[Rfam]
The record is a 102-nucleotide RNA from Ligilactobacillus salivarius, which matches "THF (Tetrahydrofolate) riboswitch aptamer" in Rfam. Taxonomically the source falls in Ligilactobacillus salivarius (Bacteria, Bacillota, Bacilli, Lactobacillaceae). From the family's description: Tetrahydrofolate (THF) riboswitch was first reported for Ames et al. as an RNA motif in 5' untranslated (5'-UTR)regions of folate transport and biosynthesis genes in Firmicutes genomes.

RNA sequence: UAAGGGGUAGGAAUCCUUGCGUAACGGACUAAUGGAACGGAAUGUGAACAUUAGUAGAUUAAGUCCGAUAUGACUUAGCGUUUGGUUUCCGCAUUCACCAUC
Numbered sequence: 001u002a003a004g005g006g007g008u009a010g011g012a013a014u015c016c017u018u019g020c021g022u023a024a025c026g027g028a029c030u031a032a033u034g035g036a037a038c039g040g041a042a043u044g045u046g047a048a049c050a051u052u053a054g055u056a057g058a059u060u061a062a063g064u065c066c067g068a069u070a071u072g073a074c075u076u077a078g079c080g081u082u083u084g085g086u087u088u089c090c091g092c093a094u095u096c097a098c099c100a101u102c
Base pairs, nucleotide, nucleotide: 002101004099005098010090011089012088013087015085016084019081020080021079022078027055029054030053031052032051033050034049040096041095042094043093044092060077061076062075063074064073065072